[Rfam]
RNA sequence: GCCCUGUGGUUACUGGACACUGGUUUGUGUGUACAGUGCUUCAGUUGGUAAAAAUGGGCCAAAAGUGAGGCUGUGAUUUAAGCAUGGAAUCUGUGAUCCCUGAGCAGCUUCCAUAGCCCGGUCACAGGAACACAC
Numbered sequence: 001g002c003c004c005u006g007u008g009g010u011u012a013c014u015g016g017a018c019a020c021u022g023g024u025u026u027g028u029g030u031g032u033a034c035a036g037u038g039c040u041u042c043a044g045u046u047g048g049u050a051a052a053a054a055u056g057g058g059c060c061a062a063a064a065g066u067g068a069g070g071c072u073g074u075g076a077u078u079u080a081a082g083c084a085u086g087g088a089a090u091c092u093g094u095g096a097u098c099c100c101u102g103a104g105c106a107g108c109u110u111c112c113a114u115a116g117c118c119c120g121g122u123c124a125c126a127g128g129a130a131c132a133c134a135c
Base pairs, nucleotide, nucleotide: 001059002058003057004056007050008049010047012045013044014043015042016041017040019037020036021035022034071127073125074124075123076122077121078120082117083116084114085113086112087111089109091107092106093105094104
Source information:
The family of this 135-nucleotide RNA sequence from Chaetura pelagica is "Small nucleolar RNA SNORA84". It scores 115 bits against the family's covariance model. The base pairs follow the family's consensus structure, which was predicted with WAR. On this family, see Marker et al., Curr Biol 2002: "Experimental RNomics: identification of 140 candidates for small non-messenger RNAs in the plant Arabidopsis thaliana". Gene Ontology terms of the family: RNA processing and nucleolus.